[Rfam]
RNA sequence: AGCCCGCUUUUUAAAAUACACACACGCUUCGUCACAUACGACAGGGUCCCACAAGGGUGCCGUAUGGGAAGUGUGGAGGCCUAAC
Numbered sequence: 001a002g003c004c005c006g007c008u009u010u011u012u013a014a015a016a017u018a019c020a021c022a023c024a025c026g027c028u029u030c031g032u033c034a035c036a037u038a039c040g041a042c043a044g045g046g047u048c049c050c051a052c053a054a055g056g057g058u059g060c061c062g063u064a065u066g067g068g069a070a071g072u073g074u075g076g077a078g079g080c081c082u083a084a085c
Stems, first nucleotide, its partner, number of pairs: 023075008035066006042059002048057003

t44 RNA: an 85-nucleotide RNA from Legionella micdadei. The family's consensus secondary structure was predicted with LocARNA. Rfam's curators write: This family consists of a number of bacterial RNA genes of between 135 and 170 bases in length. The t44 gene has been identified in several species of enteric bacteria but homologs have also been identified in Pseudomonas and Coxiella species. The t44 gene is found between the map and rpsB genes in all species in the full alignment apart from Shigella flexneri. The function of this RNA is unknown. The source organism's lineage runs through Bacteria, Pseudomonadati, Pseudomonadota, Legionellales and Legionella.